[Rfam]
The family of this 59-nucleotide RNA from Streptococcus sanguinis is "Lacto-rpoB RNA". Rfam classes the family as a cis-regulatory element. Taxonomically the source falls in Streptococcus sanguinis (Bacteria, Bacillota, Bacilli, Lactobacillales).
RNA sequence: AUUUGUCGUGUGCUUUAUUUGAAAUAUUGUCCAAAUAGAAGCUUACAGCAGUUAAAUCA
Numbered sequence: 001a002u003u004u005g006u007c008g009u010g011u012g013c014u015u016u017a018u019u020u021g022a023a024a025u026a027u028u029g030u031c032c033a034a035a036u037a038g039a040a041g042c043u044u045a046c047a048g049c050a051g052u053u054a055a056a057u058c059a
Stems, first nucleotide, its partner, number of pairs: 008046002012042002014039008